[Rfam]
A member of the RNA family "HNH endonuclease-associated RNA and ORF (HEARO) RNA" from Thioploca ingrica, 233 nucleotides long. A search with the family's covariance model found it, with a score of 100 bits. It is annotated as a non-coding RNA gene.
RNA sequence: GUCAACUACCCCGUCCUCAAGGACGGAGCUUGCCAAAGCUAGGUUGACCAGACUCAGUUGCUCGCAAGGGUAGCUACGCUUACCAGAGGUCGUUAAGACUUACCCGUGGAUGCUUCCUGAGUCCACUGCUCUAAAAGGUUAGAAUUACGCUGGGGAAAGGUAAAGCCCCGAAGGUUUUAACCGCUACUAGCCAUAGUAGGAGCCGCUGGUAAGCCUUGUCGAAGGGAGCUGGC
Numbered sequence: 001g002u003c004a005a006c007u008a009c010c011c012c013g014u015c016c017u018c019a020a021g022g023a024c025g026g027a028g029c030u031u032g033c034c035a036a037a038g039c040u041a042g043g044u045u046g047a048c049c050a051g052a053c054u055c056a057g058u059u060g061c062u063c064g065c066a067a068g069g070g071u072a073g074c075u076a077c078g079c080u081u082a083c084c085a086g087a088g089g090u091c092g093u094u095a096a097g098a099c100u101u102a103c104c105c106g107u108g109g110a111u112g113c114u115u116c117c118u119g120a121g122u123c124c125a126c127u128g129c130u131c132u133a134a135a136a137g138g139u140u141a142g143a144a145u146u147a148c149g150c151u152g153g154g155g156a157a158a159g160g161u162a163a164a165g166c167c168c169c170g171a172a173g174g175u176u177u178u179a180a181c182c183g184c185u186a187c188u189a190g191c192c193a194u195a196g197u198a199g200g201a202g203c204c205g206c207u208g209g210u211a212a213g214c215c216u217u218g219u220c221g222a223a224g225g226g227a228g229c230u231g232g233c
Stems, first nucleotide, its partner, number of pairs: 001048007010028001012025002015022002029038003051220003056075007078214009088204001100134002104128001106126006114228005137182009148173001151170005